[Rfam]
RNA sequence: CUGGGUCUUUUUGCGGUUUGGGCUUUCUGGGGGUCCCCCCCGUGUCAGAAAGCCCUUACCCCAAAAAGCACCCG
Numbered sequence: 001c002u003g004g005g006u007c008u009u010u011u012u013g014c015g016g017u018u019u020g021g022g023c024u025u026u027c028u029g030g031g032g033g034u035c036c037c038c039c040c041c042g043u044g045u046c047a048g049a050a051a052g053c054c055c056u057u058a059c060c061c062c063a064a065a066a067a068g069c070a071c072c073c074g
Base pairs, nucleotide, nucleotide: 007068008067009066010065011064012063013062015060016059017058020055021054022053023052025050027048028047
This 74-nucleotide RNA from Sphenodon punctatus belongs to the Rfam family "mir-129 microRNA precursor family". NCBI's taxonomy places the organism under Eukaryota, Eumetazoa, Tetrapoda, Sauropsida, Sphenodon. It scores 70 bits against the family's covariance model.